[Rfam]
U8 small nucleolar RNA: a 133-nucleotide RNA sequence from Gouania willdenowi.
The source organism's lineage runs through Eukaryota, Actinopteri, Ovalentaria, Blenniimorphae and Gouania.
RNA sequence: UCUUCAGUGAGGUACAUCCUUACCUGUUACUCCUAUCAAGGAGUAUCAGAACAUGAUGAAUGGGGUUCAAUGAGAUAUGAUUAAUAUCUCCGACUUGGAGGGAACAGCAACACCUUCCAAGAUCCAUUCUGAG
Numbered sequence: 001u002c003u004u005c006a007g008u009g010a011g012g013u014a015c016a017u018c019c020u021u022a023c024c025u026g027u028u029a030c031u032c033c034u035a036u037c038a039a040g041g042a043g044u045a046u047c048a049g050a051a052c053a054u055g056a057u058g059a060a061u062g063g064g065g066u067u068c069a070a071u072g073a074g075a076u077a078u079g080a081u082u083a084a085u086a087u088c089u090c091c092g093a094c095u096u097g098g099a100g101g102g103a104a105c106a107g108c109a110a111c112a113c114c115u116u117c118c119a120a121g122a123u124c125c126a127u128u129c130u131g132a133g
Base pairs, nucleotide, nucleotide: 024049025048026047028045029044030043031042032041033040072090073089075087076086077085078083094121095120096119097118098117099116100115101114